Rfam assigns this 134-nucleotide sequence from Molossus molossus to the family "U11 spliceosomal RNA".
The family's consensus secondary structure is taken from published work.
The organism belongs to Molossus, within Eukaryota.
RNA sequence: AAAAAGGGCUUCUGUUGUGAGUGGCACACACCAGGCAGCUUGAUUGUCCUACACGCAGAAUUGACACCAAGAGAUUUCAAAAGCAUAACUUUUUGGUAUCUGGGUGGCUGCUGAUCUUUGGUCCUGGCACCUGA
Numbered sequence: 001a002a003a004a005a006g007g008g009c010u011u012c013u014g015u016u017g018u019g020a021g022u023g024g025c026a027c028a029c030a031c032c033a034g035g036c037a038g039c040u041u042g043a044u045u046g047u048c049c050u051a052c053a054c055g056c057a058g059a060a061u062u063g064a065c066a067c068c069a070a071g072a073g074a075u076u077u078c079a080a081a082a083g084c085a086u087a088a089c090u091u092u093u094u095g096g097u098a099u100c101u102g103g104g105u106g107g108c109u110g111c112u113g114a115u116c117u118u119u120g121g122u123c124c125u126g127g128c129a130c131c132u133g134a
Stems, first nucleotide, its partner, number of pairs: 008084004013026005027055001034048005058077005102132004107128004113123004